[Rfam]
RNA sequence: AUUGUGACCUGAACACGAGCAUUUGCUUUUUCUUUGCUGUGGUAAGUGCUACCUGUUUGGGUCAUAGAU
Number, nucleotide and partner (000 for none) at each position: 001a000002u000003u000004g065005u064006g063007a062008c061009c060010u059011g058012a000013a056014c055015a054016c000017g052018a050019g049020c048021a047022u046023u045024u000025g043026c042027u041028u000029u000030u000031u000032c000033u000034u000035u000036g000037c000038u000039g000040u000041g027042g026043u025044a000045a023046g022047u021048g020049c019050u018051a000052c017053c000054u015055g014056u013057u000058u011059g010060g009061g008062u007063c006064a005065u004066a000067g000068a000069u000

The family of this 69-nucleotide sequence from Scyliorhinus torazame is "miR-430 microRNA precursor family". Its Rfam clan is "mir-290 clan". Gene Ontology terms of the family: miRNA-mediated post-transcriptional gene silencing and RISC complex. A search with the family's covariance model found it, with a score of 50 bits. The literature on the family includes a 2005 paper in Science by Giraldez et al., "MicroRNAs regulate brain morphogenesis in zebrafish".